[Rfam]
RNA: MIR2619 microRNA precursor family
RNA sequence: AAACAACACCCUAUGUAUUGGAUCUUUGGCAGUUUUGGCCUCCAAGGCCACUUUUGACUUAGUCUUCGCUGACAUGACAUCCACAUCCCUUAAGUGAGGUGCCACGUGUCGUCCAUUGUGGGUGCCACGUCAGCGAAGACUAAGUCAAAAGUAGCCUUGGGGGCCAAAAUUGCCAACGAUCCGAUACAUAAUGGGUUGUUU
Numbered sequence: 001a002a003a004c005a006a007c008a009c010c011c012u013a014u015g016u017a018u019u020g021g022a023u024c025u026u027u028g029g030c031a032g033u034u035u036u037g038g039c040c041u042c043c044a045a046g047g048c049c050a051c052u053u054u055u056g057a058c059u060u061a062g063u064c065u066u067c068g069c070u071g072a073c074a075u076g077a078c079a080u081c082c083a084c085a086u087c088c089c090u091u092a093a094g095u096g097a098g099g100u101g102c103c104a105c106g107u108g109u110c111g112u113c114c115a116u117u118g119u120g121g122g123u124g125c126c127a128c129g130u131c132a133g134c135g136a137a138g139a140c141u142a143a144g145u146c147a148a149a150a151g152u153a154g155c156c157u158u159g160g161g162g163g164c165c166a167a168a169a170u171u172g173c174c175a176a177c178g179a180u181c182c183g184a185u186a187c188a189u190a191a192u193g194g195g196u197u198g199u200u201u
Base pairs, nucleotide, nucleotide: 001201002200004198005197006196007195012190013189014188015187016186017185018184019183020182021181022180023179024178026176027175028174029173030172031171032170033169034168035167036166037165038164039163040162041161042160043159044158045157072130073129075127076126078124079123080122081121082120083119084118085117